[Rfam]
RNA sequence: CACGUUUUUAUGAAGUUAUCUGUGUAAAUGGGUUUGCCAUGACGGAUAGCGGAUGCCUUUUAAAUGUG
Numbered sequence: 001c002a003c004g005u006u007u008u009u010a011u012g013a014a015g016u017u018a019u020c021u022g023u024g025u026a027a028a029u030g031g032g033u034u035u036g037c038c039a040u041g042a043c044g045g046a047u048a049g050c051g052g053a054u055g056c057c058u059u060u061u062a063a064a065u066g067u068g
Stems, first nucleotide, its partner, number of pairs: 001068005015050009030038002
A member of the RNA family "Selenocysteine insertion sequence 1" from Orchesella cincta, 68 nucleotides long. Taxonomically the source falls in Orchesella (Eukaryota, Allotriocarida, Collembola, Orchesellidae). The family's RNA type in Rfam is cis-regulatory element. It scores 36 bits against the family's covariance model. The incorporation of selenocysteine into a protein sequence is directed by an in-frame UGA codon (usually a stop codon) within the coding region of the mRNA. Selenoprotein mRNAs contain a conserved secondary structure in the 3' UTR that is required for the distinction of UGA stop from UGA selenocysteine. The selenocysteine insertion sequence (SECIS) is around 60 nt in length and adopts a hairpin structure which is sufficiently well-defined and conserved to act as a computational screen for selenoprotein genes.